[Rfam]
RNA sequence: UGGGCUGAGCAAUAUGCGCUCCUGGUCCACCGAAAGGCGGGGAUAUACCCC
Numbered sequence: 001u002g003g004g005c006u007g008a009g010c011a012a013u014a015u016g017c018g019c020u021c022c023u024g025g026u027c028c029a030c031c032g033a034a035a036g037g038c039g040g041g042g043a044u045a046u047a048c049c050c051c
Base pairs, nucleotide, nucleotide: 001029002028003027004026005025006024007021008020009019010018

The family of this 51-nucleotide RNA is "DUF3800-XI RNA".
Actinobacteria, Firmicutes, Proteobacteria, Spirochaetes (1 example).
The family's RNA type in Rfam is small RNA.
It is one of the family's seed sequences.